[Rfam]
RNA sequence: UUGCCCGAUGAUUAUAAAAAGACGCGAAAGAGGACUUGAAGCUGGAUCUUUUCCUUUUUUCUCUUCUAUUCUUUCUCACUCUCAUCUCUACUAUUCUUUCUCACUUGUCUCUACUUUCCCUAUUCUCUGCUUCUUUUUCUCUUUGGAUAUCCAGCGUCCGAUGAGCGAAGAUUAUGAGAUAUGAGGGCAA
Numbered sequence: 001u002u003g004c005c006c007g008a009u010g011a012u013u014a015u016a017a018a019a020a021g022a023c024g025c026g027a028a029a030g031a032g033g034a035c036u037u038g039a040a041g042c043u044g045g046a047u048c049u050u051u052u053c054c055u056u057u058u059u060u061c062u063c064u065u066c067u068a069u070u071c072u073u074u075c076u077c078a079c080u081c082u083c084a085u086c087u088c089u090a091c092u093a094u095u096c097u098u099u100c101u102c103a104c105u106u107g108u109c110u111c112u113a114c115u116u117u118c119c120c121u122a123u124u125c126u127c128u129g130c131u132u133c134u135u136u137u138u139c140u141c142u143u144u145g146g147a148u149a150u151c152c153a154g155c156g157u158c159c160g161a162u163g164a165g166c167g168a169a170g171a172u173u174a175u176g177a178g179a180u181a182u183g184a185g186g187g188c189a190a
Stems, first nucleotide, its partner, number of pairs: 001190006031050004036046002
Overview: This 190-nucleotide RNA from Cricetulus griseus belongs to the Rfam family "Small nucleolar RNA SNORD97".